A member of the RNA family "Mammalian CPEB3 ribozyme" from Alligator mississippiensis, 75 nucleotides long.
[Rfam]
RNA sequence: UUCUAAGUUCCAGGCCACAGCAGGAGCACUCAUAGUGUGGCUCUGUCAGAUUCUAGCAAAUCUGUGAAUUCUGCC
Numbered sequence: 001u002u003c004u005a006a007g008u009u010c011c012a013g014g015c016c017a018c019a020g021c022a023g024g025a026g027c028a029c030u031c032a033u034a035g036u037g038u039g040g041c042u043c044u045g046u047c048a049g050a051u052u053c054u055a056g057c058a059a060a061u062c063u064g065u066g067a068a069u070u071c072u073g074c075c
Stems, first nucleotide, its partner, number of pairs: 013043001014041003020074006026038003047064006
Dot-bracket structure: ............[[[[...(((((((((.......)))]]].]...((((((......))))))....)))))).
A search with the family's covariance model found it, with a score of 47 bits.